[Rfam]
RNA: Small nucleolar RNA SNORA70
RNA sequence: CUGCAGCCAAUUAAGCCAACUGAGUUCCUUUCCUUGUGGGGGCCCAGUGUGCAAUGGCUGCACACAGCAGCUUCCUUGGUAGUGUACACAGCCUGUUGGUUGUAUGGGUUGCUCUGAGGGACCUUGGAGACAGGC
Numbered sequence: 001c002u003g004c005a006g007c008c009a010a011u012u013a014a015g016c017c018a019a020c021u022g023a024g025u026u027c028c029u030u031u032c033c034u035u036g037u038g039g040g041g042g043c044c045c046a047g048u049g050u051g052c053a054a055u056g057g058c059u060g061c062a063c064a065c066a067g068c069a070g071c072u073u074c075c076u077u078g079g080u081a082g083u084g085u086a087c088a089c090a091g092c093c094u095g096u097u098g099g100u101u102g103u104a105u106g107g108g109u110u111g112c113u114c115u116g117a118g119g120g121a122c123c124u125u126g127g128a129g130a131c132a133g134g135c
Base pairs, nucleotide, nucleotide: 002053003052004051005050019048020047021046022045025042026041027040028039078123079122080121089111090110091109092108093107094106